[Rfam]
RNA sequence: AAAGGUAAGAGGGAGCUCCCUUCAGUCCAAGUACAGGAAGCUCAAGACUCAACUUGUACUCCCGCUUCAUUCACUCAAUUGCUGAGGUGGCAUUCGACUAUCAAGACCUCAACAUUUGGAUGAAUGAGUCGGCAGCAAAUUGAACCCUAUCGCCCCCCAUGUGUGGACAGAAGAAAGCUCUCUUCAUAUGUAUA
Numbered sequence: 001a002a003a004g005g006u007a008a009g010a011g012g013g014a015g016c017u018c019c020c021u022u023c024a025g026u027c028c029a030a031g032u033a034c035a036g037g038a039a040g041c042u043c044a045a046g047a048c049u050c051a052a053c054u055u056g057u058a059c060u061c062c063c064g065c066u067u068c069a070u071u072c073a074c075u076c077a078a079u080u081g082c083u084g085a086g087g088u089g090g091c092a093u094u095c096g097a098c099u100a101u102c103a104a105g106a107c108c109u110c111a112a113c114a115u116u117u118g119g120a121u122g123a124a125u126g127a128g129u130c131g132g133c134a135g136c137a138a139a140u141u142g143a144a145c146c147c148u149a150u151c152g153c154c155c156c157c158c159a160u161g162u163g164u165g166g167a168c169a170g171a172a173g174a175a176a177g178c179u180c181u182c183u184u185c186a187u188a189u190g191u192a193u194a
Base pairs, nucleotide, nucleotide: 013180014179015178016177017176020173023170025168026167027166028165029164036157059135060134062132063131064130068126069125070124071123076118